The record is an 87-nucleotide sequence from Eleutherodactylus coqui, which matches "mir-15 microRNA precursor family" in Rfam. The family has 164 seed sequences and 2,045 matches in Rfam 15.1. NCBI's taxonomy places the organism under Eukaryota, Metazoa, Craniata, Tetrapoda, Eleutherodactylus. This family represents the related mir-15a and mir-15b sequences.
Nucleotides: 087
Base pairs, nucleotide, nucleotide: 001087002086004084005083006082013075014074015073016072017071018070019069020068021067022066024063026061027060028059029058030057031056032055033054034053035052
Number, partner (000 for none) and nucleotide at each position: 001087g002086u003000c004084a005083g006082c007000a008000g009000u010000g011000c012000c013075c014074u015073a016072g017071c018070a019069g020068c021067a022066c023000g024063u025000a026061a027060a028059u029058a030057u031056u032055g033054g034053a035052g036000u037000a038000a039000a040000c041000u042000c043000a044000u045000a046000a047000c048000u049000u050000c051000u052035u053034u054033c055032c056031a057030a058029u059028a060027u061026u062000a063024a064000c065000a066022g067021u068020g069019c070018u071017g072016c073015u074014a075013g076000a077000g078000u079000a080000a081000g082006g083005c084004u085000a086002a087001c